[Rfam]
About this RNA: The family of this 217-nucleotide sequence from Shewanella aestuarii is "HNH endonuclease-associated RNA and ORF (HEARO) RNA". It is annotated as a non-coding RNA gene. The family's consensus secondary structure is taken from published work. A search with the family's covariance model found it, with a score of 103 bits.
RNA sequence: GUCAAUUACGCCGCCCCUAAAGGAGCGGGCUUGUAAAAGCCAAGUUGACCAGAUCACUCACUGAGGAUUAUAUGUGAGUUAAACGAUAUUUUGGAUAUAGACACCCUCGGAUGCCACCUCAGUCCGUUGCUCUGUCGAGGCACUGUAAACAGCCCUAAAGCGUUAUGGGCAGUCAACCUCAUCUAAAGCCUUUAUAUCUGAUCGAGAGGAAGUCGGA
Numbered sequence: 001g002u003c004a005a006u007u008a009c010g011c012c013g014c015c016c017c018u019a020a021a022g023g024a025g026c027g028g029g030c031u032u033g034u035a036a037a038a039g040c041c042a043a044g045u046u047g048a049c050c051a052g053a054u055c056a057c058u059c060a061c062u063g064a065g066g067a068u069u070a071u072a073u074g075u076g077a078g079u080u081a082a083a084c085g086a087u088a089u090u091u092u093g094g095a096u097a098u099a100g101a102c103a104c105c106c107u108c109g110g111a112u113g114c115c116a117c118c119u120c121a122g123u124c125c126g127u128u129g130c131u132c133u134g135u136c137g138a139g140g141c142a143c144u145g146u147a148a149a150c151a152g153c154c155c156u157a158a159a160g161c162g163u164u165a166u167g168g169g170c171a172g173u174c175a176a177c178c179u180c181a182u183c184u185a186a187a188g189c190c191u192u193u194a195u196a197u198c199u200g201a202u203c204g205a206g207a208g209g210a211a212g213u214c215g216g217a
Base pairs, nucleotide, nucleotide: 001049002048003047004046005045006044007043011028016023017022030039031038032037052203053202054201055200056199057078058077059076060075061074085198086197087196088195089194093190094189101135102134105129108126109125110124111123112122113213114212117209118208119207120206137180138179139178140177144175145174149173150172152170153169154168155167158164